The family of this 323-nucleotide RNA sequence from Camarhynchus parvulus is "7SK RNA".
Rfam's curators write: 7SK was discovered as an abundant small nuclear RNA in the mid-70s but a possible function has only recently been suggested. Two independent studies have found that 7SK RNA binds the CDK9/cyclin T complex (known as elongation factor P-TEFb). P-TEFb activates transcription by phosphorylating the C-terminal domain of RNA polymerase II. This process is negatively regulated by the 7SK RNP. The secondary structure of 7SK RNA shown here was proposed by Wasserman and Steitz on the basis of chemical modification and enzymatic cleavage experiments. This family contains a number of annotated pseudogenes and 7SK derived repeats. The threshold is artificially high to minimise the pseudogene count.
The match comes from Rfam's covariance-model search (91 bits).
The family is grouped with related families in Rfam's "7SK clan".
A reference for the family is Wassarman and Steitz (1991), "Structural analyses of the 7SK ribonucleoprotein (RNP), the most abundant human small RNP of unknown function", Mol Cell Biol.
The base pairs follow the family's consensus structure, which is taken from published work.

RNA sequence: GGAUGUGAGGGCAGUCUGGCUCCACCCCUGUCACCCACUGAUGACCAGGUUGAUUGAGCUGACCCAGCUGGCCCGGUGGGUGUCCACUUCCCCCUCAAUGCUCCAUGUGCAUCCCUACCAAAGCUGCACCCUGGUUGAGGAGGGUGAUCUUCCCCAUGGAGAUGGUGGUGUUCAUCGGUCAAGGGUAUACAGUAACCCUGCCCCCUGCUAGAACCAACCUCCAAACAAGCUCAAGGUUUAUGGCUAUUGAUGUUGUAACUGCAGUUUCUCUAAUGAUUUUGCAGUGACCUGCCAGAGAUCUAAAGAAAAUAUUUUCUGAGUGG
Numbered sequence: 001g002g003a004u005g006u007g008a009g010g011g012c013a014g015u016c017u018g019g020c021u022c023c024a025c026c027c028c029u030g031u032c033a034c035c036c037a038c039u040g041a042u043g044a045c046c047a048g049g050u051u052g053a054u055u056g057a058g059c060u061g062a063c064c065c066a067g068c069u070g071g072c073c074c075g076g077u078g079g080g081u082g083u084c085c086a087c088u089u090c091c092c093c094c095u096c097a098a099u100g101c102u103c104c105a106u107g108u109g110c111a112u113c114c115c116u117a118c119c120a121a122a123g124c125u126g127c128a129c130c131c132u133g134g135u136u137g138a139g140g141a142g143g144g145u146g147a148u149c150u151u152c153c154c155c156a157u158g159g160a161g162a163u164g165g166u167g168g169u170g171u172u173c174a175u176c177g178g179u180c181a182a183g184g185g186u187a188u189a190c191a192g193u194a195a196c197c198c199u200g201c202c203c204c205c206u207g208c209u210a211g212a213a214c215c216a217a218c219c220u221c222c223a224a225a226c227a228a229g230c231u232c233a234a235g236g237u238u239u240a241u242g243g244c245u246a247u248u249g250a251u252g253u254u255g256u257a258a259c260u261g262c263a264g265u266u267u268c269u270c271u272a273a274u275g276a277u278u279u280u281g282c283a284g285u286g287a288c289c290u291g292c293c294a295g296a297g298a299u300c301u302a303a304a305g306a307a308a309a310u311a312u313u314u315u316c317u318g319a320g321u322g323g
Base pairs, nucleotide, nucleotide: 001104002103003102006097007096008095009094010093011092013089014088018085019084024083025082027080028079029078030077031076032075034071035070038067039066040065043064045058112165113164115161116160118134119133120132123130135156137155142153143152144151195266196264200260205255207253208252216247223245226242227241289323290322291321293318294317295316296315297314298312299311301309